[Rfam]
RNA sequence: AGGGCGGUAUCUUAGGAACUGCACCGAUUCAUUCGCAUGAUAAUUGAAUAUGAGUCCGAUAAGAUCUGCCUUGAUCUUUUUACAGACAGGGACGGAGGA
Numbered sequence: 001a002g003g004g005c006g007g008u009a010u011c012u013u014a015g016g017a018a019c020u021g022c023a024c025c026g027a028u029u030c031a032u033u034c035g036c037a038u039g040a041u042a043a044u045u046g047a048a049u050a051u052g053a054g055u056c057c058g059a060u061a062a063g064a065u066c067u068g069c070c071u072u073g074a075u076c077u078u079u080u081u082a083c084a085g086a087c088a089g090g091g092a093c094g095g096a097g098g099a
Stems, first nucleotide, its partner, number of pairs: 002025002004022005010017002066095003069091005075086003
This 99-nucleotide sequence from Sporosarcina sp. HYO08 belongs to the Rfam family "pan motif".
By type it is a cis-regulatory element.
The organism belongs to Sporosarcina, within Bacteria.
The match comes from Rfam's covariance-model search (54 bits).
Pairs were carried over by alignment from the consensus structure, which is taken from published work.